The record is an 86-nucleotide sequence from Propionigenium maris, which matches "c-di-GMP-I riboswitch aptamer" in Rfam. Pairs were carried over by alignment from the consensus structure, which is taken from published work.
[Rfam]
RNA sequence: UUCUGAAAAAGGCAAAAUAAUGGAAACAUUGUGACGCAAAGCUAGAGGGUCUAAGUCCAGAAAGGAUAUGACAGCCAGUUACCGGC
Numbered sequence: 001u002u003c004u005g006a007a008a009a010a011g012g013c014a015a016a017a018u019a020a021u022g023g024a025a026a027c028a029u030u031g032u033g034a035c036g037c038a039a040a041g042c043u044a045g046a047g048g049g050u051c052u053a054a055g056u057c058c059a060g061a062a063a064g065g066a067u068a069u070g071a072c073a074g075c076c077a078g079u080u081a082c083c084g085g086c
Stems, first nucleotide, its partner, number of pairs: 012037002017032006040080004047076002049072003056066003
Dot-bracket structure: ...........((...((((((....))))))...))..((((...(((((....(((.....)))...)))..))))))......